[Rfam]
RNA sequence: CCCUGUUCUCAGGGCGGGGCGGAAUUCCCCACCGGCGGUAAGCGGAUCACUCCGUAAGCCCGCGAGCGCCUUCGCGUUAGUGAAGGGUCAGCAGAUCAGGUGCAACUCCUGAGCCGACGGUCAUAGUCCGGAUGAAAGAGAACGAGC
Numbered sequence: 001c002c003c004u005g006u007u008c009u010c011a012g013g014g015c016g017g018g019g020c021g022g023a024a025u026u027c028c029c030c031a032c033c034g035g036c037g038g039u040a041a042g043c044g045g046a047u048c049a050c051u052c053c054g055u056a057a058g059c060c061c062g063c064g065a066g067c068g069c070c071u072u073c074g075c076g077u078u079a080g081u082g083a084a085g086g087g088u089c090a091g092c093a094g095a096u097c098a099g100g101u102g103c104a105a106c107u108c109c110u111g112a113g114c115c116g117a118c119g120g121u122c123a124u125a126g127u128c129c130g131g132a133u134g135a136a137a138g139a140g141a142a143c144g145a146g147c
Stems, first nucleotide, its partner, number of pairs: 004144007017029003031127002033116002035063004058114002066092002096112005118130003
The record is a 147-nucleotide RNA sequence from Litoreibacter arenae, which matches "FMN riboswitch aptamer (RFN element)" in Rfam. Rfam describes the family as follows. The RFN element is a highly conserved domain that is found frequently in the 5'-untranslated regions of prokaryotic mRNAs that encode for flavin mononucleotide (FMN) biosynthesis and transport proteins. Gene Ontology term of the family: FMN binding. The base pairs follow the family's consensus structure, which is taken from published work.